[Rfam]
RNA: Small nucleolar RNA GlsR27
RNA sequence: AGCUCACCCAAAGUCAACGGAGCGCCAGCUACGUGUUAUGGGCAGCGAAAGUACCAGAGCCAAAGAGUUCCUCUGAUCGCCUGGCCGGAGCACAUUUGUGAUCUCCUAUACCU
Number, nucleotide and partner (000 for none) at each position: 001a000002g046003c045004u044005c000006a000007c042008c041009c040010a039011a000012a000013g000014u000015c000016a000017a034018c033019g032020g000021a030022g029023c028024g000025c000026c000027a000028g023029c022030u021031a000032c019033g018034u017035g000036u000037u000038a000039u010040g009041g008042g007043c000044a004045g003046c002047g000048a000049a000050a000051g000052u000053a000054c084055c083056a082057g081058a000059g080060c079061c000062a000063a000064a074065g073066a072067g071068u000069u000070c000071c067072u066073c065074u064075g000076a000077u000078c000079g060080c059081c057082u056083g055084g054085c000086c000087g106088g105089a104090g103091c100092a099093c098094a000095u000096u000097u000098g093099u092100g091101a000102u000103c090104u089105c088106c087107u000108a000109u000110a000111c000112c000113u000